[Rfam]
RNA: GP20-a RNA
RNA sequence: AUUACUCUACCAUGCCGAGAUAUAACUGCAUGGGGCUUCACAACCGUUGAGCGGCAACGGAUAUACAAAUUAAAGCGGUAUCAUGAAGCACAGCUACGGAGGUAA
Dot-bracket structure: ....[[[..(((((..]]].........)))))..(((((...(((((.......))))).......................))))).................
Numbered sequence: 001a002u003u004a005c006u007c008u009a010c011c012a013u014g015c016c017g018a019g020a021u022a023u024a025a026c027u028g029c030a031u032g033g034g035g036c037u038u039c040a041c042a043a044c045c046g047u048u049g050a051g052c053g054g055c056a057a058c059g060g061a062u063a064u065a066c067a068a069a070u071u072a073a074a075g076c077g078g079u080a081u082c083a084u085g086a087a088g089c090a091c092a093g094c095u096a097c098g099g100a101g102g103u104a105a
Stems, first nucleotide, its partner, number of pairs: 005019003010033005036088005044060005